Source information: The family of this 101-nucleotide sequence from Inhella proteolytica is "Glycine riboswitch aptamer".
RNA sequence: CCGCGCCGCUCAGGAGAGAGCCCGUGACGUUGGCGGGCCGCCGAAGGCGCAGGCGUCUGCAAGGAUGCCGAACGCUCAGGCAAAAGGACUGGGUAAACCCG
Numbered sequence: 001c002c003g004c005g006c007c008g009c010u011c012a013g014g015a016g017a018g019a020g021c022c023c024g025u026g027a028c029g030u031u032g033g034c035g036g037g038c039c040g041c042c043g044a045a046g047g048c049g050c051a052g053g054c055g056u057c058u059g060c061a062a063g064g065a066u067g068c069c070g071a072a073c074g075c076u077c078a079g080g081c082a083a084a085a086g087g088a089c090u091g092g093g094u095a096a097a098c099c100c101g
Stems, first nucleotide, its partner, number of pairs: 008094006020038004040081003043077002047075003053068005